[Rfam]
Nucleotides: 100
Stems, first nucleotide, its partner, number of pairs: 019085007029049006059075004
Number, partner (000 for none) and nucleotide at each position: 001000a002000a003000u004000a005000a006000u007000a008000g009000a010000a011000g012000c013000c014000a015000g016000u017000c018000c019085g020084u021083u022082c023081g024080u025079a026000u027000a028000u029049c030048c031047u032046c033045a034044a035000u036000a037000a038000u039000a040000u041000g042000g043000u044034u045033u046032g047031a048030g049029g050000g051000u052000c053000u054000c055000u056000a057000c058000a059075a060074g061073g062072a063000g064000c065000c066000g067000a068000a069000g070000a071000a072062u073061c074060c075059u076000a077000a078000c079025u080024a081023c082022g083021a084020g085019c086000a087000u088000a089000g090000g091000g092000g093000u094000a095000c096000g097000u098000g099000u100000a
Purine riboswitch aptamer: a 100-nucleotide sequence from Paenibacillus montanisoli. It scores 64 bits against the family's covariance model. Pairs were carried over by alignment from the consensus structure, which is taken from published work. The source organism's lineage runs through Bacteria, Bacillati, Bacillota, Caryophanales and Paenibacillus.